[Rfam]
RNA sequence: GCUGUUCUUUUCCAGCACAGAUUUUAAUACUUGUGUGGUUAGCAUGAAAUACCACACAGGUAUUAAAAGCUGUGCUGGAAAAGAACAGC
Number, nucleotide and partner (000 for none) at each position: 001g089002c088003u087004g000005u085006u084007c083008u000009u000010u082011u079012c078013c077014a076015g075016c074017a073018c072019a000020g000021a000022u000023u000024u000025u000026a064027a063028u062029a061030c060031u059032u058033g057034u000035g000036u000037g000038g000039u000040u000041a000042g000043c000044a000045u000046g000047a000048a000049a000050u000051a000052c000053c000054a000055c000056a000057c033058a032059g031060g030061u029062a028063u027064u026065a000066a000067a000068a000069g000070c000071u000072g018073u017074g016075c015076u014077g013078g012079a011080a000081a000082a010083g007084a006085a005086c000087a003088g002089c001
Shown here is an 89-nucleotide sequence from Colobus angolensis, a member of the family "mir-16 microRNA precursor family". Its Rfam clan is "mir-15 clan". Taxonomically the source falls in Colobus angolensis (Eukaryota, Sarcopterygii, Amniota, Colobus). The base pairs follow the family's consensus structure, which was predicted with PFOLD. Gene Ontology terms of the family: RISC complex and miRNA-mediated post-transcriptional gene silencing.